[Rfam]
RNA sequence: CUCUUAUUCAGAGUGGUGGAGGUACAUAGGACCUAUGAAACCACGGCAACCCCUUGAGUGAUCAGGAAGGUGCCAACCUGAGCGUGCAGUUCCCGAAUGGGAAUAUGAG
Numbered sequence: 001c002u003c004u005u006a007u008u009c010a011g012a013g014u015g016g017u018g019g020a021g022g023u024a025c026a027u028a029g030g031a032c033c034u035a036u037g038a039a040a041c042c043a044c045g046g047c048a049a050c051c052c053c054u055u056g057a058g059u060g061a062u063c064a065g066g067a068a069g070g071u072g073c074c075a076a077c078c079u080g081a082g083c084g085u086g087c088a089g090u091u092c093c094c095g096a097a098u099g100g101g102a103a104u105a106u107g108a109g
Stems, first nucleotide, its partner, number of pairs: 001109003005105004013044005021033003027082001030079001045074004050070002052066003078101001083099003087095001